[Rfam]
RNA sequence: GACGACCGGCCGGACAUGGCAGUGCCCGGCCCACAAGUGGAGGCUCCGAUCUCCCACCUGACCGUCCUCCGGGACGGCGGGUCACCGGUCAGGCGGCCACCACCGUUCCGUACGGACGGUGGAGUCGCCCGAAUGCGCGCCCCGCGGUUCACCCGCGCGGUGCUCCGGACGCUUUGGAGCCCCGCCUGUGUACCGUUCGGGGCAUUUUUC
Numbered sequence: 001g002a003c004g005a006c007c008g009g010c011c012g013g014a015c016a017u018g019g020c021a022g023u024g025c026c027c028g029g030c031c032c033a034c035a036a037g038u039g040g041a042g043g044c045u046c047c048g049a050u051c052u053c054c055c056a057c058c059u060g061a062c063c064g065u066c067c068u069c070c071g072g073g074a075c076g077g078c079g080g081g082u083c084a085c086c087g088g089u090c091a092g093g094c095g096g097c098c099a100c101c102a103c104c105g106u107u108c109c110g111u112a113c114g115g116a117c118g119g120u121g122g123a124g125u126c127g128c129c130c131g132a133a134u135g136c137g138c139g140c141c142c143c144g145c146g147g148u149u150c151a152c153c154c155g156c157g158c159g160g161u162g163c164u165c166c167g168g169a170c171g172c173u174u175u176g177g178a179g180c181c182c183c184g185c186c187u188g189u190g191u192a193c194c195g196u197u198c199g200g201g202g203c204a205u206u207u208u209u210c
Stems, first nucleotide, its partner, number of pairs: 004090006012027002028083005034060002037057004041052002062077006092129003096126001100122008139203006145195003153190001154188001155186001157185004162180005
A member of the RNA family "Streptomyces RNA 1601" from Streptomyces sp. NRRL F-5122, 210 nucleotides long. Rfam describes the family as follows. Identified by deep sequencing of transcriptome at the end of exponential growth phase. The organism belongs to Streptomyces, within Bacteria.